Shown here is a 165-nucleotide RNA sequence from Mionectes macconnelli, a member of the family "Small nucleolar RNA SNORD97". The literature on the family includes a 2003 paper in Nucleic Acids Res by Vitali et al., "Identification of 13 novel human modification guide RNAs". It scores 98 bits against the family's covariance model.
RNA sequence: UUGCCCAAUGAUUAUAGCAAGACGCGUUAUUAUGAGGACUAAUGCUGGAACUCUUUCUUCUCCUCCUCCUCCUCCUCCUUUGUCCCUUCCUCUUUCACCUUACCCCCUCUCACUUUUCCUUAGGGUAUCCAGCGUCCUAUGAGCAAAACUCAGAUAUGAGGGCAA
Number, nucleotide and partner (000 for none) at each position: 001u165002u164003g163004c162005c161006c160007a000008a000009u000010g000011a000012u000013u000014a000015u000016a000017g000018c000019a000020a000021g000022a000023c000024g000025c000026g000027u000028u000029a000030u000031u000032a000033u000034g000035a054036g053037g052038a000039c000040u049041a000042a000043u000044g000045c000046u000047g000048g000049a040050a000051c000052u037053c036054u035055u000056u000057c000058u000059u000060c000061u000062c000063c000064u000065c000066c000067u000068c000069c000070u000071c000072c000073u000074c000075c000076u000077c000078c000079u000080u000081u000082g000083u000084c000085c000086c000087u000088u000089c000090c000091u000092c000093u000094u000095u000096c000097a000098c000099c000100u000101u000102a000103c000104c000105c000106c000107c000108u000109c000110u000111c000112a000113c000114u000115u000116u000117u000118c000119c000120u000121u000122a000123g000124g000125g000126u000127a000128u000129c000130c000131a000132g000133c000134g000135u000136c000137c000138u000139a000140u000141g000142a000143g000144c000145a000146a000147a000148a000149c000150u000151c000152a000153g000154a000155u000156a000157u000158g000159a000160g006161g005162g004163c003164a002165a001